[Rfam]
RNA: glmS glucosamine-6-phosphate activated ribozyme aptamer
RNA sequence: AAAACAAUAAUAGCGCCUGAACUAAGGAAAUCGAACGGACUGCAAUCCUUAGUUGACGAGGUGGAGGAUUAUCGAAUUUUCGGCGGAUACCUCCCGAUCGCAUGCCCGGUUGUUAAUUUCGUUUCUAAAACAAAAAAGAAAUUUUUUGGACAGCGAAACGAAAAGGCAAAUAA
Numbered sequence: 001a002a003a004a005c006a007a008u009a010a011u012a013g014c015g016c017c018u019g020a021a022c023u024a025a026g027g028a029a030a031u032c033g034a035a036c037g038g039a040c041u042g043c044a045a046u047c048c049u050u051a052g053u054u055g056a057c058g059a060g061g062u063g064g065a066g067g068a069u070u071a072u073c074g075a076a077u078u079u080u081c082g083g084c085g086g087a088u089a090c091c092u093c094c095c096g097a098u099c100g101c102a103u104g105c106c107c108g109g110u111u112g113u114u115a116a117u118u119u120c121g122u123u124u125c126u127a128a129a130a131c132a133a134a135a136a137a138g139a140a141a142u143u144u145u146u147u148g149g150a151c152a153g154c155g156a157a158a159c160g161a162a163a164a165g166g167c168a169a170a171u172a173a
Stems, first nucleotide, its partner, number of pairs: 020054008063094005072083004095112006117163007131148007
Dot-bracket structure: ...................((((((((...................))))))))........(((((....((((....))))......)))))((((((......))))))....(((((((.......(((((((....)))))))........)))))))..........